[Rfam]
RNA sequence: GGUUAAGGAAGGCGGUCUAAGUACGCGACAUCCUGUCGCCACGACCGCAUGACCGGCAUCGUGCCGG
Numbered sequence: 001g002g003u004u005a006a007g008g009a010a011g012g013c014g015g016u017c018u019a020a021g022u023a024c025g026c027g028a029c030a031u032c033c034u035g036u037c038g039c040c041a042c043g044a045c046c047g048c049a050u051g052a053c054c055g056g057c058a059u060c061g062u063g064c065c066g067g
Stems, first nucleotide, its partner, number of pairs: 012048006025039005053067005